[Rfam]
RNA sequence: AUUGUUUUGCCCCUACUUCGAGCUUUUACGGUUUUUGCCGGGUUUCAUCUUUGAGUGAGCCGCUCGACCAACACUAAACCAGAGACAGGGCAAAU
Numbered sequence: 001a002u003u004g005u006u007u008u009g010c011c012c013c014u015a016c017u018u019c020g021a022g023c024u025u026u027u028a029c030g031g032u033u034u035u036u037g038c039c040g041g042g043u044u045u046c047a048u049c050u051u052u053g054a055g056u057g058a059g060c061c062g063c064u065c066g067a068c069c070a071a072c073a074c075u076a077a078a079c080c081a082g083a084g085a086c087a088g089g090g091c092a093a094a095u
Stems, first nucleotide, its partner, number of pairs: 006094007018067006029040004041061003045058002